[Rfam]
RNA sequence: AGGUACAGAAGAGGUGCGUUAACUAGGUAGUAAGUCUGAGAAGUCCAAACUUUGAUGAUGGCUUAUGAGGGAGAUUAACGCCGAGGUGUUGCAGUGUUUGGAAUCACUCAAUAUCGGUCGAAUGGGCUGAAUCCCAUAGAUUGUCACCUUUUAUUGGUGGAGAGCUUCUGGUGGU
Number, nucleotide and partner (000 for none) at each position: 001a000002g000003g000004u000005a000006c170007a169008g168009a167010a166011g165012a000013g000014g000015u000016g081017c080018g079019u078020u077021a076022a075023c000024u073025a000026g000027g000028u000029a000030g066031u065032a064033a063034g062035u061036c060037u000038g000039a000040g000041a000042a000043g000044u000045c000046c000047a000048a000049a000050c000051u000052u000053u000054g000055a000056u000057g000058a000059u000060g036061g035062c034063u033064u032065a031066u030067g000068a000069g000070g000071g000072a000073g024074a000075u022076u021077a020078a019079c018080g017081c016082c000083g000084a000085g115086g114087u113088g112089u111090u110091g109092c000093a108094g107095u106096g105097u000098u000099u000100g000101g000102a000103a000104u000105c096106a095107c094108u093109c091110a090111a089112u088113a087114u086115c085116g142117g141118u140119c139120g000121a000122a137123u136124g135125g134126g133127c000128u000129g000130a000131a000132u000133c126134c125135c124136a123137u122138a000139g119140a118141u117142u116143g000144u160145c159146a158147c157148c156149u000150u000151u000152u000153a000154u000155u000156g148157g147158u146159g145160g144161a000162g000163a000164g000165c011166u010167u009168c008169u007170g006171g000172u000173g000174g000175u000
RNA: Lysine riboswitch aptamer